Shown here is a 203-nucleotide sequence from Fictibacillus arsenicus, a member of the family "SR1 sRNA". It scores 67 bits against the family's covariance model. Taxonomically the source falls in Fictibacillus (Bacteria, Bacillati, Bacillota, Caryophanales).
RNA sequence: CAGAUAUAAACGUAAGCGCUUUCAAAAUGCGAAGGGAGAUGGAACGGAUGGGAGUAAUCAUUUGCCAAACGUGUGAGACAACAAUUGAACAUUUUGAAGAGGAAAAGGUAACAACGUUGUAUUCGAAAACAUGUCCACAUUGCCAAGAGCAAGCUAAAUUACAAAAAUAAAAAGAAGACCUGCCAAGGUCUUCUUUUUUUUGU
Numbered sequence: 001c002a003g004a005u006a007u008a009a010a011c012g013u014a015a016g017c018g019c020u021u022u023c024a025a026a027a028u029g030c031g032a033a034g035g036g037a038g039a040u041g042g043a044a045c046g047g048a049u050g051g052g053a054g055u056a057a058u059c060a061u062u063u064g065c066c067a068a069a070c071g072u073g074u075g076a077g078a079c080a081a082c083a084a085u086u087g088a089a090c091a092u093u094u095u096g097a098a099g100a101g102g103a104a105a106a107g108g109u110a111a112c113a114a115c116g117u118u119g120u121a122u123u124c125g126a127a128a129a130c131a132u133g134u135c136c137a138c139a140u141u142g143c144c145a146a147g148a149g150c151a152a153g154c155u156a157a158a159u160u161a162c163a164a165a166a167a168u169a170a171a172a173a174g175a176a177g178a179c180c181u182g183c184c185a186a187g188g189u190c191u192u193c194u195u196u197u198u199u200u201u202g203u
Stems, first nucleotide, its partner, number of pairs: 016109002019107004028098001030096005036090001049084001051082001055078001061076002136142002166201002169198010